[Rfam]
The family of this 52-nucleotide RNA sequence is "L31-Actinobacteria ribosomal protein leader".
Rfam's curators put it in the seed alignment.
RNA sequence: GCGGUACCGGUUCACGCCGAUGGCGCGAUGCGCCGAUGGCGACCCGGCGACC
Number, nucleotide and partner (000 for none) at each position: 001g000002c000003g052004g051005u050006a000007c047008c046009g045010g044011u000012u000013c000014a000015c041016g040017c039018c038019g037020a000021u035022g034023g033024c032025g031026c030027g000028a000029u000030g026031c025032g024033c023034c022035g021036a000037u019038g018039g017040c016041g015042a000043c000044c010045c009046g008047g007048c000049g000050a005051c004052c003

The family's RNA type in Rfam is cis-regulatory leader.